[Rfam]
RNA sequence: AACAUCCUUCGGGGCAGGGUGAAAUUCCCGACCGGCGGUGAUGGCGGACGAAUCCGCCUCAGCCCGUGACCCGCGAAUUCGCGGUGGAUCCGGUGAAACUCCGGGGCCGACAGUGAGAGUCUGGAUGGGAGAAGGAUGAA
Numbered sequence: 001a002a003c004a005u006c007c008u009u010c011g012g013g014g015c016a017g018g019g020u021g022a023a024a025u026u027c028c029c030g031a032c033c034g035g036c037g038g039u040g041a042u043g044g045c046g047g048a049c050g051a052a053u054c055c056g057c058c059u060c061a062g063c064c065c066g067u068g069a070c071c072c073g074c075g076a077a078u079u080c081g082c083g084g085u086g087g088a089u090c091c092g093g094u095g096a097a098a099c100u101c102c103g104g105g106g107c108c109g110a111c112a113g114u115g116a117g118a119g120u121c122u123g124g125a126u127g128g129g130a131g132a133a134g135g136a137u138g139a140a
Stems, first nucleotide, its partner, number of pairs: 003138008017029003031120002033109002035067004062107002071084002089105005111123003
Dot-bracket structure: ..((((((((......(((.......))).[[((((((.......................[[))))...((..........))....(((((.......)))))]])).(((.....]]))).......))))))))..